[Rfam]
RNA sequence: CCCGAGCUGUCCAACGCCGCAACAGAAUGCGGGUCCGUAUUACGGGUGGCAGCAAUGGCCUCAUGCGAGGAGCAGGGGGGUCAGUGAUUGCCGGACAUUUCUGCCGGUGAA
Numbered sequence: 001c002c003c004g005a006g007c008u009g010u011c012c013a014a015c016g017c018c019g020c021a022a023c024a025g026a027a028u029g030c031g032g033g034u035c036c037g038u039a040u041u042a043c044g045g046g047u048g049g050c051a052g053c054a055a056u057g058g059c060c061u062c063a064u065g066c067g068a069g070g071a072g073c074a075g076g077g078g079g080g081u082c083a084g085u086g087a088u089u090g091c092c093g094g095a096c097a098u099u100u101c102u103g104c105c106g107g108u109g110a111a
Base pairs, nucleotide, nucleotide: 033047034046035045036044037043038042056083057082058081059080060079061078062077064074065073066072090108091107092106093105094104
Source information:
Shown here is a 111-nucleotide RNA sequence from Mahella australiensis, a member of the family "Mahella-1 RNA". Pairs were carried over by alignment from the consensus structure, which is taken from published work.